[Rfam]
ROOL RNA: a 557-nucleotide RNA sequence.
It is annotated as a small RNA.
Rfam's curators write: Firmicutes, Fusobacteria (1 example), Tenericutes (1 example).
The family's consensus secondary structure is taken from published work.
It is one of the family's seed sequences.
RNA sequence: AGUAUUAUCAAUAUUCAUGACAAUCCCGGUGCACAAGGCGGAUACCGCCGCUUCCGGGGUGCAGGCGAACGAGUCGGGACCGGUGACGAUAGCCACUGGUUGAAGCUUUCUUGUCGCGGAAACGCAGCGAGAGAAGACGGGAAUCCGUCAACGGUGCCUGCAGCGCAUCAUGCAGCACCAUUAAAAAGUAUCGUCCUCGCGGCAGCCAUAAUAGACGCCUCCGGUGGAGGAAUAAUCCGUUUGCCCUCAGUGUGGCAGCUGAGGAUACAAACGGAAAUGCCAACCAAGGCUGUUCGUCUUGAACUGCUGGACACAGCAGCUAUAACGCGAGAAACGAGUCGGAGUAGCUCAAUGACGGGUUUUUGAAAAAUCAAAACUAUCUGAAUGGCGGGUGAAACGUGCGGGUACUCAUUCCCGUUUGGGCAUUGCGGGCGUUUGCCAAGGCAAGAAGCAAUCGAAUACGCGGUCGAUUGUUCAGACUUGUCUUCCCAGUGACUGAUUUUAUUAGUGAUGCUGAGUGAGUAGAUGGAAGCCAUUUAAGGCGACAUCUGUGAUGG
Dot-bracket structure: .......(..(.((..........(((((......(((((........)))))))))).((((((......(((....(((((((.(....).)))))))....)))(((((((.(((....))).)))))))..(((((....))))).......))))))............(........(..((..((((.((((((((((((..........((((.....)))).....((((((...((((((..[[[[..)))))).....))))))...]]]].....))))))[[[[[.....(((((......)))))......)))))).).)))...(.....((((...]]]]].....................[[[[......))))....).....((.........))...((((.......(.......)).(((..((..(.(((.((.(.....))).)))..)]]]].))..))).))).....)....))...........).........((((.....)))).........)).)..)....